Rfam assigns this 234-nucleotide RNA sequence from Bagarius yarrelli to the family "U1 spliceosomal RNA". From the family's description: U1 is a small nuclear RNA (snRNA) component of the spliceosome (involved in pre-mRNA splicing). Its 5' end forms complementary base pairs with the 5' splice junction, thus defining the 5' donor site of an intron. There are significant differences in sequence and secondary structure between metazoan and yeast U1 snRNAs, the latter being much longer (568 nucleotides as compared to 164 nucleotides in human). The base pairs follow the family's consensus structure, which is taken from published work. Its family is annotated with U1 snRNP, pre-mRNA 5'-splice site binding and mRNA 5'-splice site recognition in the Gene Ontology.
RNA sequence: ACGCUUAGAAACAGAGAAAAUACCAUGAUCAAGAAGGUAGUUCAUCCAGUGUAAGGUGCAACCAUCGUACAUUACAUCUAAUCAAGUGUAAAAACGCGCAAUAGGUAAGAACAGCUUUGUGCCUGACUCUGAUGUGUUUACCGGGUUGUGCUGACCCCAUGUGAUUUCCCCAAAUGUGGGAAUCUCAUCUGCAUAAUUUCUGUUUGUGGGGGACUGUGUUUGUGCUCUCCCCUG
Numbered sequence: 001a002c003g004c005u006u007a008g009a010a011a012c013a014g015a016g017a018a019a020a021u022a023c024c025a026u027g028a029u030c031a032a033g034a035a036g037g038u039a040g041u042u043c044a045u046c047c048a049g050u051g052u053a054a055g056g057u058g059c060a061a062c063c064a065u066c067g068u069a070c071a072u073u074a075c076a077u078c079u080a081a082u083c084a085a086g087u088g089u090a091a092a093a094a095c096g097c098g099c100a101a102u103a104g105g106u107a108a109g110a111a112c113a114g115c116u117u118u119g120u121g122c123c124u125g126a127c128u129c130u131g132a133u134g135u136g137u138u139u140a141c142c143g144g145g146u147u148g149u150g151c152u153g154a155c156c157c158c159a160u161g162u163g164a165u166u167u168c169c170c171c172a173a174a175u176g177u178g179g180g181a182a183u184c185u186c187a188u189c190u191g192c193a194u195a196a197u198u199u200c201u202g203u204u205u206g207u208g209g210g211g212g213a214c215u216g217u218g219u220u221u222g223u224g225c226u227c228u229c230c231c232c233u234g
Base pairs, nucleotide, nucleotide: 012191013190014189016046017045020042022041023040025038026037048160049158051156055152056151057150059148060147061146062144063143162187163186164185166182167181169179170178208233209232210231211230212229213228216225217224218223